[Rfam]
Notes: Rfam assigns this 131-nucleotide sequence from Thermosinus carboxydivorans to the family "FMN riboswitch aptamer (RFN element)". Taxonomically the source falls in Thermosinus carboxydivorans (Bacteria, Bacillati, Negativicutes, Selenomonadales).
Nucleotides: 131
Stems, first nucleotide, its partner, number of pairs: 004128007017045003047111002049101002051064004059099002067077003081097005103114003
Number, partner (000 for none) and nucleotide at each position: 001000u002000g003000g004128g005127g006126c007125c008124u009123u010122u011000g012000g013000g014000g015000c016000u017045a018044g019043g020000u021000g022000a023000a024000a025000a026000a027000g028000a029000g030000u031000a032000a033000u034000c035000u036000u037000u038000u039000a040000a041000u042000u043019c044018c045017u046000g047111a048110c049101c050100g051064g052063c053062g054061g055000u056000a057000c058000a059099g060098c061054c062053c063052g064051c065000g066000a067077g068076c069075c070000a071000u072000u073000a074000u075069g076068g077067u078000u079000g080000a081097u082096c083095c084094g085093g086000u087000g088000a089000a090000a091000u092000u093085c094084c095083g096082g097081a098060g099059c100050c101049g102000a103114c104113a105112g106000u107000a108000u109000a110048g111047u112105c113104u114103g115000g116000a117000u118000g119000g120000g121000a122010a123009a124008a125007g126006g127005c128004c129000g130000g131000c